Mammalian CPEB3 ribozyme: a 77-nucleotide sequence from Alligator mississippiensis.
RNA sequence: GUUGCAAUUUCAGGGCCAUAGCUGAAGUUCUCACAGCAUGGCUCUGUCAGAUUCCAAACAAAUCUGUGAAUUCUGUU
Numbered sequence: 001g002u003u004g005c006a007a008u009u010u011c012a013g014g015g016c017c018a019u020a021g022c023u024g025a026a027g028u029u030c031u032c033a034c035a036g037c038a039u040g041g042c043u044c045u046g047u048c049a050g051a052u053u054c055c056a057a058a059c060a061a062a063u064c065u066g067u068g069a070a071u072u073c074u075g076u077u
Base pairs, nucleotide, nucleotide: 013044014043015042016041017040020077021076022075024073025072026071027039028038048066049065050064051063052062053061

Background
The family's consensus secondary structure is taken from published work.